[Rfam]
RNA sequence: UGUGAGGGCGAUCUGGCUGUGACAUCUGUCACCCCAUUGAUCGCCAGGGUUGAUUCGGCUGAUCUGGCUGGCUAGGCGGGUGUCCCCUUCCUCCCUCACGGCUCCAUGUGCAUCCCUCCCGAAGCUGCGUGCUCGGUGGAAGAGGACGACCAUCCCAGAUAGAAGGAGUGUACCGUUCUUCGGUCAAGGGUAUAAGAUAGCUGCGCUCCCCUGCUAGAACCUCCAAACAAGCUCAAGGUCCAUGUGUUUGCAGUCUUUUUUCAUUGCUCUGCAAGGAAAAAAGGGGCUGGAUUUUUCUUCUUGCUUAUGUUU
Numbered sequence: 001u002g003u004g005a006g007g008g009c010g011a012u013c014u015g016g017c018u019g020u021g022a023c024a025u026c027u028g029u030c031a032c033c034c035c036a037u038u039g040a041u042c043g044c045c046a047g048g049g050u051u052g053a054u055u056c057g058g059c060u061g062a063u064c065u066g067g068c069u070g071g072c073u074a075g076g077c078g079g080g081u082g083u084c085c086c087c088u089u090c091c092u093c094c095c096u097c098a099c100g101g102c103u104c105c106a107u108g109u110g111c112a113u114c115c116c117u118c119c120c121g122a123a124g125c126u127g128c129g130u131g132c133u134c135g136g137u138g139g140a141a142g143a144g145g146a147c148g149a150c151c152a153u154c155c156c157a158g159a160u161a162g163a164a165g166g167a168g169u170g171u172a173c174c175g176u177u178c179u180u181c182g183g184u185c186a187a188g189g190g191u192a193u194a195a196g197a198u199a200g201c202u203g204c205g206c207u208c209c210c211c212u213g214c215u216a217g218a219a220c221c222u223c224c225a226a227a228c229a230a231g232c233u234c235a236a237g238g239u240c241c242a243u244g245u246g247u248u249u250g251c252a253g254u255c256u257u258u259u260u261u262c263a264u265u266g267c268u269c270u271g272c273a274a275g276g277a278a279a280a281a282a283g284g285g286g287c288u289g290g291a292u293u294u295u296u297c298u299u300c301u302u303g304c305u306u307a308u309g310u311u312u
Base pairs, nucleotide, nucleotide: 002099003098004097005096006095007094008093010090011089015087016086021084022083023082024081025080026079027078028077029076030075032071033070034067035066036065039064040063041062042061043059044058045057114170115166116165117164118162119136120135121134122133124132125131137159144155145154146153200258206253207252213251214250221246223244277312278311279310282306283305284304286300289297290296
Annotation
The record is a 312-nucleotide RNA from Phrynocephalus forsythii, which matches "7SK RNA" in Rfam. 7SK was discovered as an abundant small nuclear RNA in the mid-70s but a possible function has only recently been suggested. Two independent studies have found that 7SK RNA binds the CDK9/cyclin T complex (known as elongation factor P-TEFb). P-TEFb activates transcription by phosphorylating the C-terminal domain of RNA polymerase II. This process is negatively regulated by the 7SK RNP. The secondary structure of 7SK RNA shown here was proposed by Wasserman and Steitz on the basis of chemical modification and enzymatic cleavage experiments. This family contains a number of annotated pseudogenes and 7SK derived repeats. On this family, see Blencowe, Curr Biol 2002: "Transcription: surprising role for an elusive small nuclear RNA". Its Rfam clan is "7SK clan". The base pairs follow the family's consensus structure, which is taken from published work. Taxonomically the source falls in Phrynocephalus (Eukaryota, Opisthokonta, Eumetazoa, Iguania).